[Rfam]
RNA sequence: AUCGUUCAUCCGCCUAUCGGUCGGACGGAAGUAGGAAGUCAUUGAGAGCUUCUGAAGGAACGCGCC
Numbered sequence: 001a002u003c004g005u006u007c008a009u010c011c012g013c014c015u016a017u018c019g020g021u022c023g024g025a026c027g028g029a030a031g032u033a034g035g036a037a038g039u040c041a042u043u044g045a046g047a048g049c050u051u052c053u054g055a056a057g058g059a060a061c062g063c064g065c066c
Stems, first nucleotide, its partner, number of pairs: 003062005009025004028063001034053006
Dot-bracket structure: ..(((((.((((.........))))..[.....((((((........))))))....)))))]...
This 66-nucleotide RNA sequence from Rippkaea orientalis belongs to the Rfam family "Glutamine riboswitch aptamer (glnA leader)". A search with the family's covariance model found it, with a score of 50 bits. The source organism's lineage runs through Bacteria, Cyanobacteriota, Oscillatoriophycideae, Rippkaea and Rippkaea orientalis. The literature on the family includes a 2015 paper in Cell Rep by Ren et al., "Structural and Dynamic Basis for Low-Affinity, High-Selectivity Binding of L-Glutamine by the Glutamine Riboswitch".